[Rfam]
RNA sequence: GCAUGGCUGAAUUCUGAUUUACUCCUCCUGUAGUAAAUGCAGUCAGACACCAUGCUAGAUUACUUCUCUUCUCCUCUAUAUAUCACAGUGGUACGUUCUUGUGUAUUUGCUGAUUUGGAGGGAGAAGUGAACAAUU
Numbered sequence: 001g002c003a004u005g006g007c008u009g010a011a012u013u014c015u016g017a018u019u020u021a022c023u024c025c026u027c028c029u030g031u032a033g034u035a036a037a038u039g040c041a042g043u044c045a046g047a048c049a050c051c052a053u054g055c056u057a058g059a060u061u062a063c064u065u066c067u068c069u070u071c072u073c074c075u076c077u078a079u080a081u082a083u084c085a086c087a088g089u090g091g092u093a094c095g096u097u098c099u100u101g102u103g104u105a106u107u108u109g110c111u112g113a114u115u116u117g118g119a120g121g122g123a124g125a126a127g128u129g130a131a132c133a134a135u136u
Base pairs, nucleotide, nucleotide: 001055002054003053004052005051006050014042015041016040019037068127069126070125071124072123073122074121081120083118084117085116087114089112090111091110092109093108

Small nucleolar RNA SNORA15: a 136-nucleotide sequence from Silurus meridionalis. The base pairs follow the family's consensus structure, which was predicted with RNAfold. The organism belongs to Silurus, within Eukaryota. For this family Rfam cites "RNomics: an experimental approach that identifies 201 candidates for novel, small, non-messenger RNAs in mouse" (Huttenhofer et al., EMBO J, 2001). About the family: ACA15 is a member of the H/ACA class of snoRNA that guide the sites of modification of uridines to pseudouridines.